The record is a 131-nucleotide RNA from Planosporangium flavigriseum, which matches "c-di-AMP riboswitch aptamer (ydaO/yuaA leader)" in Rfam. Lineage of the source: Bacteria > Actinomycetota > Actinomycetes > Micromonosporales > Planosporangium.

[Rfam]
RNA sequence: CGGCGGUCGCCGCCUAAUCACCGUGAAGGUGAGCCGGGGACCCAGGUAGUCGGGGUGAAUCCGCGCGGUGCGGUAGGGCGUGUUCCGGCCCGAACCCGUCAGCUAACCCGGUCGGCGGUCGGCGCGGAGGA
Numbered sequence: 001c002g003g004c005g006g007u008c009g010c011c012g013c014c015u016a017a018u019c020a021c022c023g024u025g026a027a028g029g030u031g032a033g034c035c036g037g038g039g040a041c042c043c044a045g046g047u048a049g050u051c052g053g054g055g056u057g058a059a060u061c062c063g064c065g066c067g068g069u070g071c072g073g074u075a076g077g078g079c080g081u082g083u084u085c086c087g088g089c090c091c092g093a094a095c096c097c098g099u100c101a102g103c104u105a106a107c108c109c110g111g112u113c114g115g116c117g118g119u120c121g122g123c124g125c126g127g128a129g130g131a
Base pairs, nucleotide, nucleotide: 011117012116013115014114018032019031020030021029022028033112034111035110036109037108038107043052053097054096055095061073062072063071064070076091077090078089079088